RNA sequence: UUGGAGAAAGCCGAAAAUCCAUUUAAGAGUAGGCG
Numbered sequence: 001u002u003g004g005a006g007a008a009a010g011c012c013g014a015a016a017a018u019c020c021a022u023u024u025a026a027g028a029g030u031a032g033g034c035g
Stems, first nucleotide, its partner, number of pairs: 002021004010034003

A member of the RNA family "DUF805b RNA" from Echinicola pacifica, 35 nucleotides long. The family is grouped with related families in Rfam's "DUF805 clan". The family's RNA type in Rfam is cis-regulatory element.